Rfam assigns this 343-nucleotide RNA from Simiduia aestuariiviva to the family "Bacterial RNase P class A". It is annotated as a ribozyme. Lineage of the source: Bacteria > Pseudomonadati > Pseudomonadota > Cellvibrionaceae > Simiduia. A search with the family's covariance model found it, with a score of 335 bits.

RNA sequence: CGAGCCAACUAGACAGUCGCUCCCGCAAGGGGGAGGAAAGUCCGGGCUCCACAGGGUAGAGUGCCAGGUAACGCCUGGGAGGCGCGAGCCUACGGAAAGUGCAGCAGAAAAUAUACCGCCUAAGCGCGCAAGCGCCGGUAAGGUUGAAAUGGUGCGGUAAGAGCGCACCGCGCAGCUGGCAACAGUCUGUGGCAAGGUAAACCCCACUCGGAGCAAGACCAAAUAGGCCUUCUAUGGUGCGACCCGCACUGAAGGCGGGUAGGUUGCUUGAGGCAGAUGGUGACAUCUGUCCCAGAUGAAUGACUGUCCACGACAGAACCCGGCUUAUCGGUUGGCUCAUUCA
Numbered sequence: 001c002g003a004g005c006c007a008a009c010u011a012g013a014c015a016g017u018c019g020c021u022c023c024c025g026c027a028a029g030g031g032g033g034a035g036g037a038a039a040g041u042c043c044g045g046g047c048u049c050c051a052c053a054g055g056g057u058a059g060a061g062u063g064c065c066a067g068g069u070a071a072c073g074c075c076u077g078g079g080a081g082g083c084g085c086g087a088g089c090c091u092a093c094g095g096a097a098a099g100u101g102c103a104g105c106a107g108a109a110a111a112u113a114u115a116c117c118g119c120c121u122a123a124g125c126g127c128g129c130a131a132g133c134g135c136c137g138g139u140a141a142g143g144u145u146g147a148a149a150u151g152g153u154g155c156g157g158u159a160a161g162a163g164c165g166c167a168c169c170g171c172g173c174a175g176c177u178g179g180c181a182a183c184a185g186u187c188u189g190u191g192g193c194a195a196g197g198u199a200a201a202c203c204c205c206a207c208u209c210g211g212a213g214c215a216a217g218a219c220c221a222a223a224u225a226g227g228c229c230u231u232c233u234a235u236g237g238u239g240c241g242a243c244c245c246g247c248a249c250u251g252a253a254g255g256c257g258g259g260u261a262g263g264u265u266g267c268u269u270g271a272g273g274c275a276g277a278u279g280g281u282g283a284c285a286u287c288u289g290u291c292c293c294a295g296a297u298g299a300a301u302g303a304c305u306g307u308c309c310a311c312g313a314c315a316g317a318a319c320c321c322g323g324c325u326u327a328u329c330g331g332u333u334g335g336c337u338c339a340u341u342c343a
Stems, first nucleotide, its partner, number of pairs: 002338009011328001012308007020033005038326003042323005047213004054245004059209005064078005079093001080091004094204002099202002101198002116143002118139003124135004151169006170193001171191005176185003217265004227256006236250005272291008